[Rfam]
RNA sequence: CAGCUACAGCUGGUUGAAGGGGACCAAAUCCAUUCAACAGUUGAUUUGGUUCCAUUUUACCAGCUUUAGCAA
Dot-bracket structure: ..((((.(((((((.(((.(((.(((((((............))))))))))..))).))))))).))))..
RNA: mir-133 microRNA precursor family
Organism: Sus scrofa